RNA: Glycine riboswitch aptamer
Organism: Niallia taxi
RNA sequence: GGAGCAGCUUCUGGAGAGACCUAUUUUUAGGCACCGAAGGAUUCACAAUCUCAGGUAAAAGGACAGGAGAGUAACU
Numbered sequence: 001g002g003a004g005c006a007g008c009u010u011c012u013g014g015a016g017a018g019a020c021c022u023a024u025u026u027u028u029a030g031g032c033a034c035c036g037a038a039g040g041a042u043u044c045a046c047a048a049u050c051u052c053a054g055g056u057a058a059a060a061g062g063a064c065a066g067g068a069g070a071g072u073a074a075c076u
Stems, first nucleotide, its partner, number of pairs: 008069006020031004033056003036052002040050003